[Rfam]
This 57-nucleotide sequence belongs to the Rfam family "S4-Clostridia ribosomal protein leader". It is annotated as a cis-regulatory leader. The family is grouped with related families in Rfam's "Ribosomal Protein S4 Leader clan". Rfam's curators put it in the seed alignment. For this family Rfam cites "Discovery of 20 novel ribosomal leader candidates in bacteria and archaea" (Eckert and Weinberg, BMC Microbiol, 2020).
RNA sequence: GAAAGGCUGUCUUACGCCAAAGACGGCUGGGUGUUUUACCGAGGCACCCCAAUUAGG
Number, nucleotide and partner (000 for none) at each position: 001g000002a000003a000004a000005g028006g027007c026008u025009g024010u023011c022012u021013u000014a000015c000016g000017c000018c000019a000020a000021a012022g011023a010024c009025g008026g007027c006028u005029g049030g048031g047032u046033g045034u044035u043036u042037u041038a000039c000040c000041g037042a036043g035044g034045c033046a032047c031048c030049c029050c000051a000052a000053u000054u000055a000056g000057g000